[Rfam]
RNA sequence: CCCUGACAGGUGCGCCCUGCGCCUGACUUAACCCACGACAGGAGAUCGACAUG
Numbered sequence: 001c002c003c004u005g006a007c008a009g010g011u012g013c014g015c016c017c018u019g020c021g022c023c024u025g026a027c028u029u030a031a032c033c034c035a036c037g038a039c040a041g042g043a044g045a046u047c048g049a050c051a052u053g
Stems, first nucleotide, its partner, number of pairs: 002042004007025005
RNA: Mu-gpT-DE RNA